[Rfam]
RNA sequence: GUUUCCAUCUUACCGGGCAGCAUUAGAUUGGCUUUGUAACAAGCACCAUGUGUUUCUAAUACUGUCAGGUAAAGAUGUCCUC
Numbered sequence: 001g002u003u004u005c006c007a008u009c010u011u012a013c014c015g016g017g018c019a020g021c022a023u024u025a026g027a028u029u030g031g032c033u034u035u036g037u038a039a040c041a042a043g044c045a046c047c048a049u050g051u052g053u054u055u056c057u058a059a060u061a062c063u064g065u066c067a068g069g070u071a072a073a074g075a076u077g078u079c080c081u082c
Stems, first nucleotide, its partner, number of pairs: 006077004010072005016066005022060006
RNA: mir-8/mir-141/mir-200 microRNA precursor family